[Rfam]
The record is a 282-nucleotide RNA sequence from Cylindrospermum stagnale, which matches "HNH endonuclease-associated RNA and ORF (HEARO) RNA" in Rfam. NCBI's taxonomy places the organism under Bacteria, Cyanobacteriota, Cyanophyceae, Cylindrospermum, Cylindrospermum stagnale. The base pairs follow the family's consensus structure, which is taken from published work. The literature on the family includes a 2009 paper in Nature by Weinberg et al., "Exceptional structured noncoding RNAs revealed by bacterial metagenome analysis". The family's RNA type in Rfam is non-coding RNA gene.
RNA sequence: GUCAACAACCCACCACCAACCCUUUGGGCACAGUGGGGGCAAACGACUGCCCUAGUUGACCCGACUAAGUACCGUGCGUACUACGUUUAAGGCAAGAGUUCAAGACCUACCCUGGAAUGCGUAGCCAGUUCCAGGCACUAGAACUGGGGGAUUAAACAGGCUUAGAGGGUUAAGCUGGUGUCUUCUGGAUAGUGAGAUAGUUCGUUUCUGUCGCCUCGCGUCGGAAUCUUCUAUCGAACCCGCAAGGGUACCGACCUUAAACAUUGUCCAGGCUAACAUUAC
Numbered sequence: 001g002u003c004a005a006c007a008a009c010c011c012a013c014c015a016c017c018a019a020c021c022c023u024u025u026g027g028g029c030a031c032a033g034u035g036g037g038g039g040c041a042a043a044c045g046a047c048u049g050c051c052c053u054a055g056u057u058g059a060c061c062c063g064a065c066u067a068a069g070u071a072c073c074g075u076g077c078g079u080a081c082u083a084c085g086u087u088u089a090a091g092g093c094a095a096g097a098g099u100u101c102a103a104g105a106c107c108u109a110c111c112c113u114g115g116a117a118u119g120c121g122u123a124g125c126c127a128g129u130u131c132c133a134g135g136c137a138c139u140a141g142a143a144c145u146g147g148g149g150g151a152u153u154a155a156a157c158a159g160g161c162u163u164a165g166a167g168g169g170u171u172a173a174g175c176u177g178g179u180g181u182c183u184u185c186u187g188g189a190u191a192g193u194g195a196g197a198u199a200g201u202u203c204g205u206u207u208c209u210g211u212c213g214c215c216u217c218g219c220g221u222c223g224g225a226a227u228c229u230u231c232u233a234u235c236g237a238a239c240c241c242g243c244a245a246g247g248g249u250a251c252c253g254a255c256c257u258u259a260a261a262c263a264u265u266g267u268c269c270a271g272g273c274u275a276a277c278a279u280u281a282c
Stems, first nucleotide, its partner, number of pairs: 001060006008053001010039002013036002021028002040049002063268003067264001068082005085262008107141002111135008122275005144188009156179002159176007